[Rfam]
RNA sequence: AGAGUCUGCCAGGCAAUCGCCGCCGCUUUUAAGCGGGGGAGGAAAGUCCGGGCUCCACUGGGCAAGGUGCCAGAUAACGUCUGGGCGGCGCGAGCCGACGGAAAGUGCAACAGAAAGUAUACCGCCUAAGCAUCCUCAGAUGCCGGUAAGGUUGAAAUGGUGCGGUAAGAGCGCACCGCGUGGGUGGCAACACUCCACGGCGAUGGUAAACCCCACCCGGAGCAAGACCAAAUAGGGACCCAUUAAGGCGUGGCCCGCGCCGGGUCCGGGUAGGUCGCUUGAGACCAGUGGUGACGCUGGUCCUAGAUGAAUGAUUGUCCACGACAAAACCCGGCUUAUCGGCAGACUCUCAAC
Number, nucleotide and partner (000 for none) at each position: 001a350002g349003a348004g347005u346006c345007u344008g343009c342010c341011a339012g319013g318014c317015a316016a315017u314018c313019g000020c039021c038022g000023c036024c035025g034026c033027u032028u000029u000030u000031a000032a027033g026034c025035g024036g023037g000038g021039g020040a000041g000042g000043a000044a337045a336046g335047u000048c334049c333050g332051g331052g330053c222054u221055c220056c219057a000058c000059u000060g256061g255062g254063c253064a000065a000066g217067g216068u215069g214070c084071c083072a082073g081074a080075u000076a000077a000078c000079g000080u074081c073082u072083g071084g070085g099086c097087g096088g095089c094090g000091c000092g000093a000094g089095c088096c087097g086098a000099c085100g213101g212102a000103a000104a000105g211106u210107g207108c206109a000110a000111c000112a000113g000114a000115a000116a000117g000118u000119a000120u000121a000122c151123c150124g147125c146126c145127u000128a000129a000130g143131c142132a141133u140134c139135c000136u000137c000138a000139g134140a133141u132142g131143c130144c000145g126146g125147u124148a000149a000150g123151g122152u000153u000154g000155a000156a000157a000158u000159g177160g176161u175162g174163c173164g172165g000166u000167a000168a000169g000170a000171g000172c164173g163174c162175a161176c160177c159178g201179c199180g198181u197182g196183g195184g193185u192186g191187g000188c000189a000190a000191c186192a185193c184194u000195c183196c182197a181198c180199g179200g000201c178202g000203a000204u000205g000206g108207u107208a000209a000210a106211c105212c101213c100214c069215a068216c067217c066218c000219g056220g055221a054222g053223c000224a000225a000226g276227a275228c274229c273230a000231a000232a000233u000234a000235g000236g267237g266238a265239c264240c263241c262242a000243u000244u000245a000246a000247g261248g260249c259250g258251u257252g000253g063254c062255c061256c060257g251258c250259g249260c248261c247262g241263g240264g239265u238266c237267c236268g000269g000270g000271u000272a000273g229274g228275u227276c226277g000278c000279u000280u000281g000282a000283g302284a301285c300286c299287a298288g297289u296290g295291g000292u000293g000294a000295c290296g289297c288298u287299g286300g285301u284302c283303c000304u000305a000306g000307a000308u000309g000310a000311a000312u000313g018314a017315u016316u015317g014318u013319c012320c000321a000322c000323g000324a000325c000326a000327a000328a000329a000330c052331c051332c050333g049334g048335c046336u045337u044338a000339u011340c000341g010342g009343c008344a007345g006346a005347c004348u003349c002350u001351c000352a000353a000354c000

The record is a 354-nucleotide RNA sequence from Marinobacterium iners, which matches "Bacterial RNase P class A" in Rfam. Its family is annotated with ribonuclease P activity, tRNA processing and dimeric ribonuclease P complex in the Gene Ontology. By type it is a ribozyme. The match comes from Rfam's covariance-model search (341 bits).